RNA sequence: CCUCCUCGAUCUGCUGCGGACAGAUGAAGUGGAUGUGGCUGUCGAUGCCGCCGGCGGUGAUGAUCAUGCCUUCGCCGGCGAUGAUCUCGGUGCCGGCGCCGAUGAUGAUGUUCACGCCGGGCUGGAUGUCCGGAUUGCCGGCCUUGCCGAUCGCCGCGAUGCGCGAGUUCUUGAUGCCGAUGUCGGCCUUGACGAUGCCCCAGUGAUCGACGAUCAGCGCGUUGGUGAUGACGGUGUCCGCGCAGUCCUUCGCCGGACGCUGCGACUGGCCCUGGCCGUCGCGGAUG
Dot-bracket structure: (.(.(.(((..(((.((((..((......(((.((.(..(....)..))))))...(((.......))).))..))((..(.(.(....((((((((.((.(...((.........).)...)))..))).))..))).).).)..))....)).))).....(.((..(.((.((.........((.(((........(........).....))).))..(((..(.((...((......)).)).)...)))..)).)).).)).).........))).).).)
Rfam assigns this 287-nucleotide RNA sequence from Panacagrimonas perspica to the family "5' ureB small RNA". The literature on the family includes a 2013 paper in J Bacteriol by Wen et al., "Helicobacter pylori 5'ureB-sRNA, a cis-encoded antisense small RNA, negatively regulates ureAB expression by transcription termination". Rfam links the family to the GO term negative regulation of gene expression.